[Rfam]
RNA sequence: GGCGAUAAACUGCCGGUGAAAUAAACCAUUCGGACCCGGGGGCAGUGCCCGGCGCCUCCACCAGAAACCGCCGAAAGGCGAUGAUCGCAGGGCGGUUUCUGCUGGGGGCGAAACAGGAUCGACGAGGGUGUAAAGAUCGGACUUUCGCUCGGCAUGGUACCACCGUUAUCGGGCUAAACUCUAUAGUUGCCAACGACAACUAUGCGGAGGCACGUCUCGCUGCUUAA
Numbered sequence: 001g002g003c004g005a006u007a008a009a010c011u012g013c014c015g016g017u018g019a020a021a022u023a024a025a026c027c028a029u030u031c032g033g034a035c036c037c038g039g040g041g042g043c044a045g046u047g048c049c050c051g052g053c054g055c056c057u058c059c060a061c062c063a064g065a066a067a068c069c070g071c072c073g074a075a076a077g078g079c080g081a082u083g084a085u086c087g088c089a090g091g092g093c094g095g096u097u098u099c100u101g102c103u104g105g106g107g108g109c110g111a112a113a114c115a116g117g118a119u120c121g122a123c124g125a126g127g128g129u130g131u132a133a134a135g136a137u138c139g140g141a142c143u144u145u146c147g148c149u150c151g152g153c154a155u156g157g158u159a160c161c162a163c164c165g166u167u168a169u170c171g172g173g174c175u176a177a178a179c180u181c182u183a184u185a186g187u188u189g190c191c192a193a194c195g196a197c198a199a200c201u202a203u204g205c206g207g208a209g210g211c212a213c214g215u216c217u218c219g220c221u222g223c224u225u226a227a
Stems, first nucleotide, its partner, number of pairs: 001149005014139004026128002030125003036052005053110007150165003
Dot-bracket structure: (((((........((((........((..(((...(((((.......)))))(((((((............................................)))))))............))).)).......)))).....)))))(((..........)))..............................................................
Notes:
This 227-nucleotide sequence from Nitratireductor indicus belongs to the Rfam family "permuted transfer-messenger RNA". Its family is annotated with RNA catabolic process in the Gene Ontology.